[Rfam]
RNA sequence: GGGCACAUGGUGUAGUUGGUUAUCACGCUCGCUUAGCAUCUGAGGUUCAGAAUCAUGCGAGAGGUGCUGGGUUCAAUUCCCAGUGUGUCCA
Numbered sequence: 001g002g003g004c005a006c007a008u009g010g011u012g013u014a015g016u017u018g019g020u021u022a023u024c025a026c027g028c029u030c031g032c033u034u035a036g037c038a039u040c041u042g043a044g045g046u047u048c049a050g051a052a053u054c055a056u057g058c059g060a061g062a063g064g065u066g067c068u069g070g071g072u073u074c075a076a077u078u079c080c081c082a083g084u085g086u087g088u089c090c091a
Stems, first nucleotide, its partner, number of pairs: 001090007010026003028061005067083005
Dot-bracket structure: (((((((..(((...........))).(((((........................))))).....(((((.......)))))))))))).